Nucleotides: 102
Base pairs, nucleotide, nucleotide: 019087020086021085022084023083024082025081029049030048031047032046033045034044058078059077060076061075062074063073064072
Number, partner (000 for none) and nucleotide at each position: 001000a002000u003000u004000g005000a006000a007000u008000a009000g010000a011000a012000a013000u014000u015000a016000a017000u018000c019087a020086u021085c022084u023083a024082u025081a026000u027000a028000a029049u030048c031047c032046u033045a034044a035000u036000a037000a038000u039000a040000a041000g042000g043000u044034u045033u046032a047031g048030g049029a050000g051000u052000a053000u054000c055000u056000a057000c058078c059077u060076a061075g062074a063073a064072a065000c066000c067000a068000u069000a070000a071000a072064u073063u074062u075061c076060u077059a078058g079000a080000c081025u082024a083023u084022a085021g086020g087019u088000a089000a090000g091000u092000c093000u094000a095000a096000u097000u098000u099000u100000u101000g102000c
Rfam assigns this 102-nucleotide sequence from Clostridium acetireducens to the family "Purine riboswitch aptamer". Gene Ontology term of the family: purine nucleobase biosynthetic process. A search with the family's covariance model found it, with a score of 83 bits.